[Rfam]
A member of the RNA family "pan motif" from Anaerosporomusa subterranea, 90 nucleotides long. By type it is a cis-regulatory element. A search with the family's covariance model found it, with a score of 53 bits. The family's consensus secondary structure is taken from published work.

RNA sequence: UGGGCAGUAUCGCUUGCGAGCUACACCGGCUGUUAGGCUAAUCUUCAAAGAACCAAUCCGCUUAGAUCCUUUGAGGGCUAAGACGGAAGG
Numbered sequence: 001u002g003g004g005c006a007g008u009a010u011c012g013c014u015u016g017c018g019a020g021c022u023a024c025a026c027c028g029g030c031u032g033u034u035a036g037g038c039u040a041a042u043c044u045u046c047a048a049a050g051a052a053c054c055a056a057u058c059c060g061c062u063u064a065g066a067u068c069c070u071u072u073g074a075g076g077g078c079u080a081a082g083a084c085g086g087a088a089g090g
Stems, first nucleotide, its partner, number of pairs: 001028003004024001006022003010019002058086003061082005067077003